[Rfam]
RNA: Small nucleolar RNA Z103
Organism: Triticum urartu
RNA sequence: GUGGAGAUGAUGAUCCUUUCCCCAGAUGAUCGACAAUGAACAUGCUGAGCGCUAUAAUUUCUCUUAGGAGAAACCAAGCCAGGACUCUGAUCUGC
Numbered sequence: 001g002u003g004g005a006g007a008u009g010a011u012g013a014u015c016c017u018u019u020c021c022c023c024a025g026a027u028g029a030u031c032g033a034c035a036a037u038g039a040a041c042a043u044g045c046u047g048a049g050c051g052c053u054a055u056a057a058u059u060u061c062u063c064u065u066a067g068g069a070g071a072a073a074c075c076a077a078g079c080c081a082g083g084a085c086u087c088u089g090a091u092c093u094g095c
Stems, first nucleotide, its partner, number of pairs: 001095005